[Rfam]
RNA sequence: ACGUGGGGACGACCUCACCUCUCCAUCAUCAAUCGGGGACGGCCUCG
Dot-bracket structure: (.((((((....)))))).).............(((((....)))))
RNA: Guanidine-II riboswitch aptamer (mini-ykkC)
Organism: Herminiimonas fonticola